[Rfam]
RNA sequence: AACGACCGGCCGGACACCUGUGUGCCCGGCCCGCAAGUGGAGGCUCCGAUCUCCCACCUGACCGCUCUCACGGGCGGCGGGUCACCGGUCAGGCGGCGACCAUCGUUCCGUACGGACGAUGGAGUCGCCCUGUGCGCCCCGCGGUUGACCGCGACGGUGCUCCGGUUUUCUUUGGAGCCCCGCUUGUGUCCCGUCCGGGGCAUUUUUC
Numbered sequence: 001a002a003c004g005a006c007c008g009g010c011c012g013g014a015c016a017c018c019u020g021u022g023u024g025c026c027c028g029g030c031c032c033g034c035a036a037g038u039g040g041a042g043g044c045u046c047c048g049a050u051c052u053c054c055c056a057c058c059u060g061a062c063c064g065c066u067c068u069c070a071c072g073g074g075c076g077g078c079g080g081g082u083c084a085c086c087g088g089u090c091a092g093g094c095g096g097c098g099a100c101c102a103u104c105g106u107u108c109c110g111u112a113c114g115g116a117c118g119a120u121g122g123a124g125u126c127g128c129c130c131u132g133u134g135c136g137c138c139c140c141g142c143g144g145u146u147g148a149c150c151g152c153g154a155c156g157g158u159g160c161u162c163c164g165g166u167u168u169u170c171u172u173u174g175g176a177g178c179c180c181c182g183c184u185u186g187u188g189u190c191c192c193g194u195c196c197g198g199g200g201c202a203u204u205u206u207u208c
Stems, first nucleotide, its partner, number of pairs: 004090006012027002028083005034060002037057004041052002062077006092129003096126001100122008136201006142193003150188003153184001155182003159178005